[Rfam]
RNA sequence: GACUUUUUUGAACUCCGAGCCAUGUUGCCUAAGUCCACGCAGUCGGCGGGAUAUGGCGUCUUGGCCGUGGCCUCGCGCCACCAGGGUGUCAGGUAGAAAUGCCGAUGCCUCCCGACUUGGAAAGGUGUUUAUGGACUCCCAAU
Numbered sequence: 001g002a003c004u005u006u007u008u009u010g011a012a013c014u015c016c017g018a019g020c021c022a023u024g025u026u027g028c029c030u031a032a033g034u035c036c037a038c039g040c041a042g043u044c045g046g047c048g049g050g051a052u053a054u055g056g057c058g059u060c061u062u063g064g065c066c067g068u069g070g071c072c073u074c075g076c077g078c079c080a081c082c083a084g085g086g087u088g089u090c091a092g093g094u095a096g097a098a099a100u101g102c103c104g105a106u107g108c109c110u111c112c113c114g115a116c117u118u119g120g121a122a123a124g125g126u127g128u129u130u131a132u133g134g135a136c137u138c139c140c141a142a143u
Stems, first nucleotide, its partner, number of pairs: 006134001011129003015125002019065004024060001026058004033052004067081005084110006092103004111120002

This 143-nucleotide RNA sequence from Edwardsiella hoshinae belongs to the Rfam family "Molybdenum/Tungsten riboswitch aptamer (Moco RNA motif)". The organism belongs to Edwardsiella, within Bacteria. The literature on the family includes a 2008 paper in Mol Microbiol by Regulski et al., "in molybdenum cofactor and tungsten cofactor metabolism".